[Rfam]
RNA sequence: ACCUGUGAUGACAUAUCCACGACUUGGAGGUGUAGAUAGGUCCAGGUCCCUGUUUUGCAGGGAGAACCUACUUGGAGCUGCUGCAUUCAGUUGACAUUUCUGGAUUUGUCUGAGGC
Numbered sequence: 001a002c003c004u005g006u007g008a009u010g011a012c013a014u015a016u017c018c019a020c021g022a023c024u025u026g027g028a029g030g031u032g033u034a035g036a037u038a039g040g041u042c043c044a045g046g047u048c049c050c051u052g053u054u055u056u057g058c059a060g061g062g063a064g065a066a067c068c069u070a071c072u073u074g075g076a077g078c079u080g081c082u083g084c085a086u087u088c089a090g091u092u093g094a095c096a097u098u099u100c101u102g103g104a105u106u107u108g109u110c111u112g113a114g115g116c
Stems, first nucleotide, its partner, number of pairs: 002115002048062005
RNA: Small nucleolar RNA Z278
Organism: Musa acuminata